[Rfam]
RNA: MIR408 microRNA precursor family
RNA sequence: AGAGACAGAUGAAGACGGGGAACAGGCAGAGCAUGGAUGGAGCUACUAACAGAAGUACUUGUUUUGGCUCUACCCAUGCACUGCCUCUUCCCUGGCUUGUGGCUCUUCCUUUUCU
Numbered sequence: 001a002g003a004g005a006c007a008g009a010u011g012a013a014g015a016c017g018g019g020g021a022a023c024a025g026g027c028a029g030a031g032c033a034u035g036g037a038u039g040g041a042g043c044u045a046c047u048a049a050c051a052g053a054a055g056u057a058c059u060u061g062u063u064u065u066g067g068c069u070c071u072a073c074c075c076a077u078g079c080a081c082u083g084c085c086u087c088u089u090c091c092c093u094g095g096c097u098u099g100u101g102g103c104u105c106u107u108c109c110u111u112u113u114c115u
Base pairs, nucleotide, nucleotide: 012098013097014096016094017093018092019091020090021089022088024086025085026084027083028082029081031079032078033077034076035075036074040070041069